[Rfam]
RNA sequence: AGAGGUCCUCUGUGGCCAGGGUGGAACGCUUGCCUCAUCACCGUGGUGACAAAGCAAGCAUUCUGCCAGGUUGCUCAUGCUGCCUAC
Numbered sequence: 001a002g003a004g005g006u007c008c009u010c011u012g013u014g015g016c017c018a019g020g021g022u023g024g025a026a027c028g029c030u031u032g033c034c035u036c037a038u039c040a041c042c043g044u045g046g047u048g049a050c051a052a053a054g055c056a057a058g059c060a061u062u063c064u065g066c067c068a069g070g071u072u073g074c075u076c077a078u079g080c081u082g083c084c085u086a087c
Base pairs, nucleotide, nucleotide: 004084005083006082012074013073014072015071016070017069020067021066022065023064024063025062026061028059029058030057031056032055033054038049039048040047041046